[Rfam]
RNA sequence: UAUUAGGCUAGGUUGGGAGGUUAGUGGUCUCUUGUAAGCUCAAAUCCUCUAUAUGGAGCGACCGAAGUUUUUGGAGAGGCAUAUUAAAUAUUAAUAGGCCUAUAAUUGUAAUGUCGAAGUUUCGCCCCAUAGGAUUAGUGGUAGUGGAAAUCUAACUGGAGGGUUGGGUUAAACCAUUUUAGUCGAUUGAACGGGUCAGGUCUGGAAAGAAGCAGCUCUGUUUCGGACAACUGAUGUUUAUGGAUCAGCGGGGUGGAGUUACGGUUAUAGAUCACCUAUUUCUAUGAGGUAUGUCCAUCCAAUUACAUGCCGCUA
Numbered sequence: 001u002a003u004u005a006g007g008c009u010a011g012g013u014u015g016g017g018a019g020g021u022u023a024g025u026g027g028u029c030u031c032u033u034g035u036a037a038g039c040u041c042a043a044a045u046c047c048u049c050u051a052u053a054u055g056g057a058g059c060g061a062c063c064g065a066a067g068u069u070u071u072u073g074g075a076g077a078g079g080c081a082u083a084u085u086a087a088a089u090a091u092u093a094a095u096a097g098g099c100c101u102a103u104a105a106u107u108g109u110a111a112u113g114u115c116g117a118a119g120u121u122u123c124g125c126c127c128c129a130u131a132g133g134a135u136u137a138g139u140g141g142u143a144g145u146g147g148a149a150a151u152c153u154a155a156c157u158g159g160a161g162g163g164u165u166g167g168g169u170u171a172a173a174c175c176a177u178u179u180u181a182g183u184c185g186a187u188u189g190a191a192c193g194g195g196u197c198a199g200g201u202c203u204g205g206a207a208a209g210a211a212g213c214a215g216c217u218c219u220g221u222u223u224c225g226g227a228c229a230a231c232u233g234a235u236g237u238u239u240a241u242g243g244a245u246c247a248g249c250g251g252g253g254u255g256g257a258g259u260u261a262c263g264g265u266u267a268u269a270g271a272u273c274a275c276c277u278a279u280u281u282c283u284a285u286g287a288g289g290u291a292u293g294u295c296c297a298u299c300c301a302a303u304u305a306c307a308u309g310c311c312g313c314u315a
Stems, first nucleotide, its partner, number of pairs: 001315002004312001006311003011063004015033007038059004043054001067306002071302005078295004084288001088285003093280006100270013114256001119254007127243007134235005139229002141180001143178005149170009183226004193218004201210003
Dot-bracket structure: ((.(.(((..(((((((((((.....)))))))....((((.(..........).))))))))...((..(((((..((((..(...(((..((((((.(((((((((((((.(....(((((((.(((((((((((((((.(((((.(((((((((....)))))))))...))))).)..((((......((((....(((....)))....))))....)))).)).))))).)))))))....))))))).).)))))))))))))....))))))..)))..)...))))..)))))..))..)))).))
This 315-nucleotide RNA sequence from Methanosphaera sp. SHI613 belongs to the Rfam family "Archaeal signal recognition particle RNA". A search with the family's covariance model found it, with a score of 180 bits. The family is grouped with related families in Rfam's "SRP clan". Lineage of the source: Archaea > Methanobacteriati > Methanobacteriota > Methanobacteriales > Methanosphaera. Pairs were carried over by alignment from the consensus structure, which is taken from published work. It is annotated as a non-coding RNA gene.